[Rfam]
RNA sequence: CCAGGAAGGGAGAAGCAUUCUCUCAUUGGUCGGUGUGUAUUCCCUCGUCAACCAAUGAGAGGAUGCCAUUUAUCCCUCUCUG
Numbered sequence: 001c002c003a004g005g006a007a008g009g010g011a012g013a014a015g016c017a018u019u020c021u022c023u024c025a026u027u028g029g030u031c032g033g034u035g036u037g038u039a040u041u042c043c044c045u046c047g048u049c050a051a052c053c054a055a056u057g058a059g060a061g062g063a064u065g066c067c068a069u070u071u072a073u074c075c076c077u078c079u080c081u082g
Base pairs, nucleotide, nucleotide: 004079005078006077008075009074010073012071013070014069015066016065017064018063019062020061021060022059023058025056026055027054028053029052030051032049033048034047035046
mir-1179 microRNA precursor family: an 82-nucleotide RNA from Myotis davidii. Its family is annotated with miRNA-mediated post-transcriptional gene silencing and RISC complex in the Gene Ontology.